[Rfam]
RNA: DUF805b RNA
Organism: Runella slithyformis
Nucleotides: 038
Base pairs, nucleotide, nucleotide: 002021003020004019005018010037011036012035
Number, partner (000 for none) and nucleotide at each position: 001000a002021a003020g004019g005018c006000g007000a008000a009000a010037c011036c012035u013000g014000a015000a016000a017000a018005g019004c020003c021002u022000a023000u024000g025000a026000a027000a028000c029000a030000g031000a032000g033000u034000a035012g036011g037010g038000a